[Rfam]
RNA sequence: UCCACCGUGAGGUGGAAUCUGAAGGAAGCCGGACGCAAAAUCUCGGGGCAACGAACAGAAACUGGAUAAAAGGCUGACUGGAGACGGACGAGUUUGCAUAACAAAACGAAGUCCGACACUGCCCAAAUCUCCUACAGUAAAUCCAGUGUCUACGAGAGGAAAGCGGUUAGA
Numbered sequence: 001u002c003c004a005c006c007g008u009g010a011g012g013u014g015g016a017a018u019c020u021g022a023a024g025g026a027a028g029c030c031g032g033a034c035g036c037a038a039a040a041u042c043u044c045g046g047g048g049c050a051a052c053g054a055a056c057a058g059a060a061a062c063u064g065g066a067u068a069a070a071a072g073g074c075u076g077a078c079u080g081g082a083g084a085c086g087g088a089c090g091a092g093u094u095u096g097c098a099u100a101a102c103a104a105a106a107c108g109a110a111g112u113c114c115g116a117c118a119c120u121g122c123c124c125a126a127a128u129c130u131c132c133u134a135c136a137g138u139a140a141a142u143c144c145a146g147u148g149u150c151u152a153c154g155a156g157a158g159g160a161a162a163g164c165g166g167u168u169a170g171a
Stems, first nucleotide, its partner, number of pairs: 001016006029170001031168002035164002041157005046151005062146006073138003080132005086114004092107004

A member of the RNA family "Group II catalytic intron D1-D4-3" from Texcoconibacillus texcoconensis, 171 nucleotides long. Group II introns are found in rRNA, tRNA and mRNA of organelles in fungi, plants and protists, and also in mRNA in bacteria. The base pairs follow the family's consensus structure. Lineage of the source: Bacteria > Bacillati > Bacilli > Caryophanales > Texcoconibacillus.